[Rfam]
RNA sequence: CAGUUCGCACCACUCAUCCGGCAGGAGCGGGGGAACCAGGUACGUGCCGGGCCGCGGCGACACGGUCCGGCUUGGGGUGAAGCCAUGCCUCUUCUCGUCACCCAUGCAAAGGGGACGACGGAGGAAUGGCCGGGCAACUCCAGCCCGAAUCCGACAGCUCACCUCGCAGGCGCCAGGAGAGGACAC
Number, nucleotide and partner (000 for none) at each position: 001c000002a000003g000004u026005u025006c024007g000008c000009a000010c000011c000012a000013c000014u000015c000016a000017u000018c000019c000020g000021g000022c000023a000024g006025g005026a004027g167028c166029g165030g164031g163032g162033g000034a000035a000036c000037c074038a073039g072040g071041u070042a000043c000044g000045u000046g000047c000048c000049g000050g000051g000052c000053c000054g000055c000056g000057g000058c000059g000060a000061c000062a000063c000064g000065g000066u000067c000068c000069g000070g041071c040072u039073u038074g037075g152076g151077g150078u000079g000080a000081a000082g000083c129084c128085a127086u126087g000088c000089c000090u000091c000092u000093u000094c000095u000096c000097g000098u000099c000100a000101c000102c000103c000104a000105u000106g000107c000108a000109a000110a000111g000112g000113g000114g000115a000116c000117g000118a000119c000120g000121g000122a000123g000124g000125a000126a086127u085128g084129g083130c000131c000132g146133g145134g144135c143136a000137a000138c000139u000140c000141c000142a000143g135144c134145c133146c132147g000148a000149a000150u077151c076152c075153g000154a000155c000156a000157g000158c000159u000160c000161a000162c032163c031164u030165c029166g028167c027168a000169g000170g000171c000172g000173c000174c000175a000176g000177g000178a000179g000180a000181g000182g000183a000184c000185a000186c000
Description
This 186-nucleotide RNA from Streptomyces sp. Z26 belongs to the Rfam family "c-di-AMP riboswitch aptamer (ydaO/yuaA leader)". It scores 58 bits against the family's covariance model. From the family's description: This family represents a conserved RNA structure found upstream of the ydaO and yuaA genes in Bacillus subtilis and related genes in other bacteria. NCBI's taxonomy places the organism under Bacteria, Bacillati, Actinomycetota, Actinomycetes, Streptomyces.